[Rfam]
RNA sequence: ACGUUGUUCCGCUGCAUUGGUAUUGUUUGCAAGAGCAUCGG
Number, nucleotide and partner (000 for none) at each position: 001a000002c000003g039004u000005u037006g036007u035008u034009c033010c000011g000012c000013u031014g030015c029016a028017u000018u000019g000020g000021u000022a000023u000024u000025g000026u000027u000028u016029g015030c014031a013032a000033g009034a008035g007036c006037a005038u000039c003040g000041g000